[Rfam]
RNA sequence: UACUUAUCCAGAAAGACCGAGGGAAAGGCCCUGCGAAGUCUUAGCAACCUGUAUCUCCAAGGUAAAAGGUGCUAAUUCCUGCUUUGUUUAAUUGCAAAGACAGAUAAGCU
Numbered sequence: 001u002a003c004u005u006a007u008c009c010a011g012a013a014a015g016a017c018c019g020a021g022g023g024a025a026a027g028g029c030c031c032u033g034c035g036a037a038g039u040c041u042u043a044g045c046a047a048c049c050u051g052u053a054u055c056u057c058c059a060a061g062g063u064a065a066a067a068g069g070u071g072c073u074a075a076u077u078c079c080u081g082c083u084u085u086g087u088u089u090a091a092u093u094g095c096a097a098a099g100a101c102a103g104a105u106a107a108g109c110u
Base pairs, nucleotide, nucleotide: 003108004107005106006105007104008103013042014041015040016039017038021031022030023029026080027079028078043073044072045071046070048069049068052064053063054062077102082099083098084097085096086095087094
RNA: SAM riboswitch aptamer (S box leader)